RNA sequence: CAAUUUCUUGCUUUAACAGUGCUUGGACAGAAGCUG
Numbered sequence: 001c002a003a004u005u006u007c008u009u010g011c012u013u014u015a016a017c018a019g020u021g022c023u024u025g026g027a028c029a030g031a032a033g034c035u036g
Stems, first nucleotide, its partner, number of pairs: 001036002004033005010028001012027005017021001
RNA: Iron response element I